[Rfam]
RNA: Bacillaceae-1 RNA
RNA sequence: UUAGAAACAAGGUCGGCAAAGAACUCAGGCGUCCUGCCUGAAAAGUCGACAUUAGUACGGCCUGUGCG
Numbered sequence: 001u002u003a004g005a006a007a008c009a010a011g012g013u014c015g016g017c018a019a020a021g022a023a024c025u026c027a028g029g030c031g032u033c034c035u036g037c038c039u040g041a042a043a044a045g046u047c048g049a050c051a052u053u054a055g056u057a058c059g060g061c062c063u064g065u066g067c068g
Base pairs, nucleotide, nucleotide: 012050013049014048015047016046017045026040027039028038029037030036055067056066057065058064